[Rfam]
RNA sequence: GCAAUAGAAAAGGUUGUCUCAAAGGCGGUUGGCAUGCUCCCAUUGGAAAGGGGGUGUUGCUGUUUGACGAUUUUUGAAACGUUCAUGAUUAUGAUUGGGUUUGCUAGUUUAAUCGUAGCCAUCCUGACGUUUGGUCAAAAAAAAUAAUCCACCCUUGAGUUUUGCGGCUCAGGUGGAUUAUUUAAUCUCAUUAACAAGUCAACCCUUUUAAGGGGACCGUCUAUUGCAGGACCUGACAUGUUGCACCAUGUCGG
Numbered sequence: 001g002c003a004a005u006a007g008a009a010a011a012g013g014u015u016g017u018c019u020c021a022a023a024g025g026c027g028g029u030u031g032g033c034a035u036g037c038u039c040c041c042a043u044u045g046g047a048a049a050g051g052g053g054g055u056g057u058u059g060c061u062g063u064u065u066g067a068c069g070a071u072u073u074u075u076g077a078a079a080c081g082u083u084c085a086u087g088a089u090u091a092u093g094a095u096u097g098g099g100u101u102u103g104c105u106a107g108u109u110u111a112a113u114c115g116u117a118g119c120c121a122u123c124c125u126g127a128c129g130u131u132u133g134g135u136c137a138a139a140a141a142a143a144a145u146a147a148u149c150c151a152c153c154c155u156u157g158a159g160u161u162u163u164g165c166g167g168c169u170c171a172g173g174u175g176g177a178u179u180a181u182u183u184a185a186u187c188u189c190a191u192u193a194a195c196a197a198g199u200c201a202a203c204c205c206u207u208u209u210a211a212g213g214g215g216a217c218c219g220u221c222u223a224u225u226g227c228a229g230g231a232c233c234u235g236a237c238a239u240g241u242u243g244c245a246c247c248a249u250g251u252c253g254g
Base pairs, nucleotide, nucleotide: 001227002226003225004224005223007221008220015201018159019158020157021156022155024153025152027149028148029147030146034057035056036055038054039053040052041051066128068126069125080093081092103119104118105117169190171188203215204214205213233254234253235252236251237250238249239248240247
The family of this 254-nucleotide RNA from Bacillus sp. 7884-1 is "BsrG". It is annotated as a small RNA. Pairs were carried over by alignment from the consensus structure, which was predicted with WAR.